[Rfam]
RNA: Streptomyces RNA 6925
Organism: Streptomyces noursei
RNA sequence: UUGGUGUUGCCACGUUGAGGUGUCCCGUGCGAAGGGCUCAGCGUGGUGAUGAUGGGCACGAUCCGCUUUUAGCCGGGUUAGCCGUUCAGUGAUCGGCGUCCGAGAGUUGCCGCUCUCGGGCGCCGUUG
Numbered sequence: 001u002u003g004g005u006g007u008u009g010c011c012a013c014g015u016u017g018a019g020g021u022g023u024c025c026c027g028u029g030c031g032a033a034g035g036g037c038u039c040a041g042c043g044u045g046g047u048g049a050u051g052a053u054g055g056g057c058a059c060g061a062u063c064c065g066c067u068u069u070u071a072g073c074c075g076g077g078u079u080a081g082c083c084g085u086u087c088a089g090u091g092a093u094c095g096g097c098g099u100c101c102g103a104g105a106g107u108u109g110c111c112g113c114u115c116u117c118g119g120g121c122g123c124c125g126u127u128g
Stems, first nucleotide, its partner, number of pairs: 002089001006050002010046009023035001025034001052085004057081001062077004067072001094125014